[Rfam]
RNA sequence: AAAAAGCCCGCUUUGCGUCGGCAUAAGCGGGCUUCAUGUGAAAAACGGGGAUAACGACAGCUUUGGGCGCCGGGCGCUCUCGCGCCCCUCGCUUUAGCUGUUUCGGGUUGCCCCGCGUCCGCAAGCUGAAAUCAAAUCGACGCAAGGCCCAAUCGUAUCACGGCCGGCGCGGAUUGCGG
Numbered sequence: 001a002a003a004a005a006g007c008c009c010g011c012u013u014u015g016c017g018u019c020g021g022c023a024u025a026a027g028c029g030g031g032c033u034u035c036a037u038g039u040g041a042a043a044a045a046c047g048g049g050g051a052u053a054a055c056g057a058c059a060g061c062u063u064u065g066g067g068c069g070c071c072g073g074g075c076g077c078u079c080u081c082g083c084g085c086c087c088c089u090c091g092c093u094u095u096a097g098c099u100g101u102u103u104c105g106g107g108u109u110g111c112c113c114c115g116c117g118u119c120c121g122c123a124a125g126c127u128g129a130a131a132u133c134a135a136a137u138c139g140a141c142g143c144a145a146g147g148c149c150c151a152a153u154c155g156u157a158u159c160a161c162g163g164c165c166g167g168c169g170c171g172g173a174u175u176g177c178g179g
Stems, first nucleotide, its partner, number of pairs: 004034009014023003037144004059093003065089002067085001069083002072081003094129006105114003115122002159178001161176003
Dot-bracket structure: ...(((((((((.(((....)))..)))))))))..((((..................(((...(((.((.(((....))))).)..)).)))((((((.....(((....)))((....)).))))))...........))))..............(.(((..........))).).
This 179-nucleotide RNA sequence from Burkholderia sp. WAC0059 belongs to the Rfam family "Burkholderia sRNA Bp2_Cand287_SIPHT". Lineage of the source: Bacteria > Pseudomonadati > Betaproteobacteria > Burkholderiaceae > Burkholderia. A search with the family's covariance model found it, with a score of 122 bits. The family's RNA type in Rfam is small RNA.